[Rfam]
This 145-nucleotide RNA sequence from Marinobacter sp. R17 belongs to the Rfam family "RtT RNA". Rfam classes the family as a cis-regulatory element. About the family: This family represents a bacterial cis-regulatory element known as RtT RNA. The exact function of RtT is unknown although it is thought that it may be involved in changing the cellular response in relation to amino acid starvation. The base pairs follow the family's consensus structure, which is taken from published work. NCBI's taxonomy places the organism under Bacteria, Pseudomonadota, Gammaproteobacteria, Marinobacteraceae, Marinobacter. It scores 50 bits against the family's covariance model.
RNA sequence: UUUAUUGGCUGAUUGGGUGGGUAGAAGAACCCUCGCGGGUUCGACCGGAGCAGGCGAACGCCUGCGGAGGAACGUCGGAGCGUAUGCGACGACGGCCCCGAAGGGGUGAGGCGCAAAGCGCCGAAUCAUCCCUCCCUCUCCGCCA
Numbered sequence: 001u002u003u004a005u006u007g008g009c010u011g012a013u014u015g016g017g018u019g020g021g022u023a024g025a026a027g028a029a030c031c032c033u034c035g036c037g038g039g040u041u042c043g044a045c046c047g048g049a050g051c052a053g054g055c056g057a058a059c060g061c062c063u064g065c066g067g068a069g070g071a072a073c074g075u076c077g078g079a080g081c082g083u084a085u086g087c088g089a090c091g092a093c094g095g096c097c098c099c100g101a102a103g104g105g106g107u108g109a110g111g112c113g114c115a116a117a118g119c120g121c122c123g124a125a126u127c128a129u130c131c132c133u134c135c136c137u138c139u140c141c142g143c144c145a
Base pairs, nucleotide, nucleotide: 015136016135017134019132020131021130022128034108035107040102041101042100043099048065073094074093075092076091077090